This 65-nucleotide RNA from Oryzias javanicus belongs to the Rfam family "GAIT element". It is annotated as a cis-regulatory element. NCBI's taxonomy places the organism under Eukaryota, Acanthomorphata, Ovalentaria, Adrianichthyoidei, Oryzias. The match comes from Rfam's covariance-model search (38 bits). Rfam 15.1 lists 121 matches to the family in 113 species. Rfam describes the family as follows. This family represents a cis-acting element in the 3'-UTR of the ceruloplasmin (Cp) gene called gamma interferon inhibitor of translation (GAIT). The GAIT element is involved in selective translational silencing of the Cp transcript.

RNA sequence: GUAUACUUAAGUAUAAAAAAGUAUGUAUAUACCAAGUAUACUUAAAAAGUAUACUGGAAGUUUAC
Dot-bracket structure: (((.((...(((.........((.(((....(...)..))).))........)))....)).)))